[Rfam]
RNA: Iron response element I
RNA sequence: UUGCUCUUGCUUCAACAGUGCUUGAAUGGAACAG
Numbered sequence: 001u002u003g004c005u006c007u008u009g010c011u012u013c014a015a016c017a018g019u020g021c022u023u024g025a026a027u028g029g030a031a032c033a034g
Stems, first nucleotide, its partner, number of pairs: 001033001005030003009027001011026005016020001
Dot-bracket structure: (...(((.(.((((((...).)))))))))..).